[Rfam]
RNA sequence: AUCUUAUCUAGAGAGGUCGAGGGACUGGCCCUAUGACGCCUCAGCAACCAGUCAACAUGAUUGAUAUGGUGCUAAUUCCAGCAGGUUUUAUAACCUGAACGAUAAGGA
Numbered sequence: 001a002u003c004u005u006a007u008c009u010a011g012a013g014a015g016g017u018c019g020a021g022g023g024a025c026u027g028g029c030c031c032u033a034u035g036a037c038g039c040c041u042c043a044g045c046a047a048c049c050a051g052u053c054a055a056c057a058u059g060a061u062u063g064a065u066a067u068g069g070u071g072c073u074a075a076u077u078c079c080a081g082c083a084g085g086u087u088u089u090a091u092a093a094c095c096u097g098a099a100c101g102a103u104a105a106g107g108a
Stems, first nucleotide, its partner, number of pairs: 002107007013042005021031003025081004043073004048069002051065004082097006

The family of this 108-nucleotide RNA sequence from Heyndrickxia oleronia is "SAM riboswitch aptamer (S box leader)". The SAM riboswitch is found upstream of a number of genes which code for proteins involved in methionine or cysteine biosynthesis in Gram-positive bacteria. The SAM riboswitch acts at the level of transcription termination control. The predicted structure consists of a complex stem-loop region followed by a single stem loop terminator region. The base pairs follow the family's consensus structure, which is taken from published work. Its family is annotated with regulation of gene expression in the Gene Ontology.